RNA sequence: ACACGUGACACGGGGUGCCCUCUGGGGGCUGAGAUAAGACCCGUUGAACCUGAUCCAGUUUGGACUGGCGGAGGGAUUGUCACGGGGACGCUCC
Numbered sequence: 001a002c003a004c005g006u007g008a009c010a011c012g013g014g015g016u017g018c019c020c021u022c023u024g025g026g027g028g029c030u031g032a033g034a035u036a037a038g039a040c041c042c043g044u045u046g047a048a049c050c051u052g053a054u055c056c057a058g059u060u061u062g063g064a065c066u067g068g069c070g071g072a073g074g075g076a077u078u079g080u081c082a083c084g085g086g087g088a089c090g091c092u093c094c
Stems, first nucleotide, its partner, number of pairs: 006082005011043004016037001017029005049074003055068004
A member of the RNA family "TPP riboswitch aptamer (THI element)" from Corynebacterium genitalium, 94 nucleotides long.